The record is a 142-nucleotide RNA sequence from Bacillus pseudomycoides, which matches "c-di-AMP riboswitch aptamer (ydaO/yuaA leader)" in Rfam.
[Rfam]
RNA sequence: AAUAAUAAAUCGCUUAAUCCACUUCAGGAGCGGGGGAACCAAAUUUGUGCAUUGUCACUAGGGGUGAAUCCUUUUAUAGGUAGGGCUACUCUCAAGGCCCGAAUCCGACAGCUAACCUCGUCAGCGUUUUGAGAGGGGGGCU
Dot-bracket structure: ..........((((...(((......)))((((((....(....................)(((.....(((.....)))..((((..........))))...))).........)))))).))))................
This family represents a conserved RNA structure found upstream of the ydaO and yuaA genes in Bacillus subtilis and related genes in other bacteria. The ydaO/yuaA element is thought to act as a genetic 'off' switch for the ydaO and yuaA genes in its native state. It is believed that the element may be triggered during osmotic shock leading to activation of ydaO, a predicted amino acid transporter gene, and members of the yuaA-yubG operon which code for KtrA and KtrB K+ transporters. A search with the family's covariance model found it, with a score of 105 bits.